[Rfam]
Description
Flavo-1 RNA: a 142-nucleotide RNA sequence from Polaribacter glomeratus. By type it is a small RNA. The source organism's lineage runs through Bacteria, Pseudomonadati, Flavobacteriia, Flavobacteriales and Polaribacter.
RNA sequence: AUAUGUUAGGGAUUGAAAUGGCAUCCUUUUUAUGCUUUACAAGCUUUACUAUUGGAACGUAUAUUUUAGUGAUCUUGAUGUAUGAGCAUCUGUUUGAUUAAUUAUAGAGCAUAAAAAGAUACAAUGGAAAGCCCGACCACGC
Numbered sequence: 001a002u003a004u005g006u007u008a009g010g011g012a013u014u015g016a017a018a019u020g021g022c023a024u025c026c027u028u029u030u031u032a033u034g035c036u037u038u039a040c041a042a043g044c045u046u047u048a049c050u051a052u053u054g055g056a057a058c059g060u061a062u063a064u065u066u067u068a069g070u071g072a073u074c075u076u077g078a079u080g081u082a083u084g085a086g087c088a089u090c091u092g093u094u095u096g097a098u099u100a101a102u103u104a105u106a107g108a109g110c111a112u113a114a115a116a117a118g119a120u121a122c123a124a125u126g127g128a129a130a131g132c133c134c135g136a137c138c139a140c141g142c
Stems, first nucleotide, its partner, number of pairs: 009134003013130002018125002023120003029115011